[Rfam]
RNA sequence: UGAGAGCAAAGUUCUGUAACACGUAGACUCUGAGUACGGUAGAAGUCAGUGCACUACAGAACUUGGUUUUCAG
Numbered sequence: 001u002g003a004g005a006g007c008a009a010a011g012u013u014c015u016g017u018a019a020c021a022c023g024u025a026g027a028c029u030c031u032g033a034g035u036a037c038g039g040u041a042g043a044a045g046u047c048a049g050u051g052c053a054c055u056a057c058a059g060a061a062c063u064u065g066g067u068u069u070u071c072a073g
Stems, first nucleotide, its partner, number of pairs: 004069004009064008020051003026047004

Rfam assigns this 73-nucleotide RNA sequence from Lepisosteus oculatus to the family "mir-148/mir-152 microRNA precursor family". Its family is annotated with RISC complex and miRNA-mediated post-transcriptional gene silencing in the Gene Ontology. For this family Rfam cites "The developmental miRNA profiles of zebrafish as determined by small RNA cloning" (Chen et al., Genes Dev, 2005). The match comes from Rfam's covariance-model search (61 bits).